Shown here is a 98-nucleotide RNA sequence from Enterococcus sulfureus, a member of the family "THF (Tetrahydrofolate) riboswitch aptamer". It scores 87 bits against the family's covariance model. The source organism's lineage runs through Bacteria, Bacillati, Bacillota, Lactobacillales and Enterococcus sulfureus. The family's consensus secondary structure is taken from published work. From the family's description: Tetrahydrofolate (THF) riboswitch was first reported for Ames et al. as an RNA motif in 5' untranslated (5'-UTR)regions of folate transport and biosynthesis genes in Firmicutes genomes.
[Rfam]
RNA sequence: AUCAGAGUAGGAGAUAAAGCGUUAAGUGCCAAAAGGAUGGGAUGUUGCCUAUUGGACGAAGGAUGAAGAUCCGCGGUUUUGUCUUCGCAUUCGCUGCA
Numbered sequence: 001a002u003c004a005g006a007g008u009a010g011g012a013g014a015u016a017a018a019g020c021g022u023u024a025a026g027u028g029c030c031a032a033a034a035g036g037a038u039g040g041g042a043u044g045u046u047g048c049c050u051a052u053u054g055g056a057c058g059a060a061g062g063a064u065g066a067a068g069a070u071c072c073g074c075g076g077u078u079u080u081g082u083c084u085u086c087g088c089a090u091u092c093g094c095u096g097c098a
Stems, first nucleotide, its partner, number of pairs: 003096003010086010020075003026057002029055004034050003040092005061072004